[Rfam]
RNA: Small nucleolar RNA snoR74
RNA sequence: AAAAAAGCAGGAUGCUGUGCUCUCUAUAAGCAGUGUCCUCGUAAAUUUUAGGAACAUGUUUCAUCGUUAUUGGGUGAACCGUUGGGCUAUUCAAUGUCCAUUGGUUCAGUAAAUGAUGGCACAUUU
Numbered sequence: 001a002a003a004a005a006a007g008c009a010g011g012a013u014g015c016u017g018u019g020c021u022c023u024c025u026a027u028a029a030g031c032a033g034u035g036u037c038c039u040c041g042u043a044a045a046u047u048u049u050a051g052g053a054a055c056a057u058g059u060u061u062c063a064u065c066g067u068u069a070u071u072g073g074g075u076g077a078a079c080c081g082u083u084g085g086g087c088u089a090u091u092c093a094a095u096g097u098c099c100a101u102u103g104g105u106u107c108a109g110u111a112a113a114u115g116a117u118g119g120c121a122c123a124u125u126u
Base pairs, nucleotide, nucleotide: 005048006047007046011037012036014034015033016032017031061119062118063117064116065115066114067113068112075108076107077106078105079104080103081102